[Rfam]
RNA sequence: UCUCCCUCAGCUCUGGCAAUCACACAGGUUCAGUGUGUGCUUGGUGGAUUUUCAAGCAAGACAGGAGAGAGUGUGGCACUCCUAAUGCAUAGCUGACCUGCCCCAAAGCGGUGCUCUGUUCCUAAGGAGUGCAUGCAUC
Numbered sequence: 001u002c003u004c005c006c007u008c009a010g011c012u013c014u015g016g017c018a019a020u021c022a023c024a025c026a027g028g029u030u031c032a033g034u035g036u037g038u039g040c041u042u043g044g045u046g047g048a049u050u051u052u053c054a055a056g057c058a059a060g061a062c063a064g065g066a067g068a069g070a071g072u073g074u075g076g077c078a079c080u081c082c083u084a085a086u087g088c089a090u091a092g093c094u095g096a097c098c099u100g101c102c103c104c105a106a107a108g109c110g111g112u113g114c115u116c117u118g119u120u121c122c123u124a125a126g127g128a129g130u131g132c133a134u135g136c137a138u139c
Base pairs, nucleotide, nucleotide: 002071003070004069006067007066008065012056014054015053018042019041021039022038023037024036025035079129080128081127082126083125085123087121095116096115098113100112101111102110
The record is a 139-nucleotide RNA from Mesocricetus auratus, which matches "Small nucleolar RNA SNORA64/SNORA10 family" in Rfam. Rfam describes the family as follows. This family belongs to the H/ACA class of small nucleolar RNAs (snoRNAs) which act as guides in the the modification of uridines to pseudouridines. Clan: SNORA64 clan. Gene Ontology terms of the family: nucleolus and RNA processing.